Rfam assigns this 234-nucleotide sequence from Thioploca ingrica to the family "HNH endonuclease-associated RNA and ORF (HEARO) RNA".
The literature on the family includes a 2009 paper in Nature by Weinberg et al., "Exceptional structured noncoding RNAs revealed by bacterial metagenome analysis".
The family's RNA type in Rfam is non-coding RNA gene.
Nucleotides: 234
Base pairs, nucleotide, nucleotide: 001048002047003046004045005044006043007042010028012025013024015022016021029038030037031036051221052220053219055217056075057074058073059072060071061070062069078215079214080213081212082211083210084209086207088205100134101133104128105127106126107125108124109123110122111121112231114229115228116227117226118225137182138181139180140179143176144175145174146173151170152169153168154167155166
Number, partner (000 for none) and nucleotide at each position: 001048g002047u003046c004045a005044a006043c007042u008000a009000c010028c011000c012025c013024g014000c015022c016021c017000u018000c019000a020000a021016g022015g023000g024013u025012g026000g027000a028010g029038c030037u031036u032000a033000u034000a035000a036031a037030g038029g039000c040000u041000a042007g043006g044005u045004u046003g047002a048001c049000c050000a051221g052220a053219c054000u055217a056075a057074g058073c059072c060071g061070c062069u063000a064000g065000u066000a067000g068000u069062a070061g071060u072059g073058g074057c075056u076000a077000c078215g079214c080213c081212a082211u083210a084209u085000c086207g087000a088205g089000g090000u091000c092000g093000u094000u095000a096000a097000g098000a099000c100134u101133u102000a103000c104128c105127a106126g107125c108124a109123g110122a111121u112231g113000c114229u115228u116227c117226c118225u119000g120000a121111g122110u123109c124108u125107g126106c127105u128104g129000c130000u131000c132000u133101a134100a135000a136000a137182g138181a139180c140179u141000u142000u143176a144175a145174u146173c147000a148000a149000g150000c151170u152169g153168g154167g155166g156000c157000a158000a159000g160000g161000u162000a163000a164000a165000a166155c167154c168153c169152c170151g171000a172000a173146g174145g175144u176143u177000u178000u179140a180139g181138u182137c183000g184000u185000u186000g187000u188000u189000c190000c191000u192000a193000a194000a195000g196000a197000a198000c199000c200000a201000g202000a203000g204000c205088c206000g207086c208000u209084g210083u211082a212081u213080g214079g215078c216000a217055u218000u219053g220052u221051c222000g223000a224000a225118g226117g227116g228115a229114g230000a231112u232000u233000g234000u

The match comes from Rfam's covariance-model search (100 bits). Rfam 15.1 lists 952 matches to the family in 249 species.